Source information
Rfam assigns this 138-nucleotide sequence from Otolemur garnettii to the family "Small Cajal body specific RNA 11". The sequence is in the family's curated seed alignment. The source organism's lineage runs through Eukaryota, Gnathostomata, Euteleostomi, Amniota and Otolemur. The family's consensus secondary structure was predicted with RNAalifold. About the family: scaRNAs are a specific class of small nuclear RNAs which localise to the Cajal bodies and guide the modification of RNA polymerase II transcribed spliceosomal RNAs U1, U2, U4, U5 and U12. ACA57 belongs to the H/ACA box class of guide RNAs as it has the predicted hairpin-hinge-hairpin-tail structure, conserved H/ACA-box motifs and is found associated with GAR1. ACA57 is predicted to guide the pseudouridylation of the U5 spliceosomal RNA at position U43. Rfam 15.1 lists 853 matches to the family in 557 species. It is annotated as a small Cajal body RNA.
Nucleotides: 138
Stems, first nucleotide, its partner, number of pairs: 002063007010056002023052003026048006076133006083125004089119007096111006
Number, partner (000 for none) and nucleotide at each position: 001000u002063u003062g004061u005060c006059c007058u008057g009000g010056c011055c012000u013000a014000u015000g016000c017000u018000c019000u020000u021000c022000u023052g024051c025050u026048c027047c028046c029045u030044g031043u032000g033000c034000u035000c036000a037000g038000u039000u040000c041000a042000a043031a044030c045029a046028g047027g048026g049000u050025a051024g052023u053000c054000u055011g056010g057008c058007a059006g060005g061004a062003c063002a064000c065000a066000c067000a068000a069000u070000a071000a072000u073000c074000u075000c076133c077132c078131u079130c080129u081128c082000a083125g084124u085123u086122u087000a088000g089119g090118a091117g092116a093115g094114c095113c096111g097110u098109c099108c100107u101106a102000a103000g104000a105000a106101u107100a108099g109098g110097g111096c112000u113095g114094g115093c116092u117091c118090u119089u120000a121000a122086a123085g124084g125083c126000a127000c128081g129080a130079g131078a132077g133076g134000a135000c136000a137000a138000u